[Rfam]
RNA sequence: CCUCGCCCGCGCGACUGGCGACCUUGGAUGGAGCACCAUCGGGAAGCGCGGGACCAAGCUGCCGCGCGCCUGGGCAAAAUCA
Numbered sequence: 001c002c003u004c005g006c007c008c009g010c011g012c013g014a015c016u017g018g019c020g021a022c023c024u025u026g027g028a029u030g031g032a033g034c035a036c037c038a039u040c041g042g043g044a045a046g047c048g049c050g051g052g053a054c055c056a057a058g059c060u061g062c063c064g065c066g067c068g069c070c071u072g073g074g075c076a077a078a079a080u081c082a
Base pairs, nucleotide, nucleotide: 006052007051008050009049010048011047012046015043016042017070018069019068020067028039029038030037031036060076061075062074063073

ZMP/ZTP riboswitch aptamer (pfl RNA motif): an 82-nucleotide RNA sequence from Rhodopseudomonas rhenobacensis. The organism belongs to Rhodopseudomonas, within Bacteria.